The family of this 132-nucleotide RNA from Herpetotheres cachinnans is "Small nucleolar RNA SNORA9". By type it is an H/ACA-box small nucleolar RNA. Its Rfam clan is "SNORA9 clan". Rfam links the family to the GO terms RNA processing and nucleolus. About the family: ACA9 is a member of the H/ACA class of snoRNA that guide the sites of modification of uridines to pseudouridines. It scores 94 bits against the family's covariance model. Pairs were carried over by alignment from the consensus structure, which was predicted with PFOLD.

RNA sequence: CCGCAAGCCUCCCAGCGUGGGGGGGCCUGCCGUGGCCCCCGCCGUUCCUGCAGCGCUUGCCAGAGCAGCCCGGGAUGGUUCGUGGCCUCUCCCCGCUGUGCCGGGGAGGGGUUGUAUACAUCCCGGACACCC
Numbered sequence: 001c002c003g004c005a006a007g008c009c010u011c012c013c014a015g016c017g018u019g020g021g022g023g024g025g026c027c028u029g030c031c032g033u034g035g036c037c038c039c040c041g042c043c044g045u046u047c048c049u050g051c052a053g054c055g056c057u058u059g060c061c062a063g064a065g066c067a068g069c070c071c072g073g074g075a076u077g078g079u080u081c082g083u084g085g086c087c088u089c090u091c092c093c094c095g096c097u098g099u100g101c102c103g104g105g106g107a108g109g110g111g112u113u114g115u116a117u118a119c120a121u122c123c124c125g126g127a128c129a130c131c132c
Base pairs, nucleotide, nucleotide: 003060004059005058006057007056008055018044019043020042023038024037025036026035027034071125072124073123074122075121086111087110088109089108090107091106093104094103095102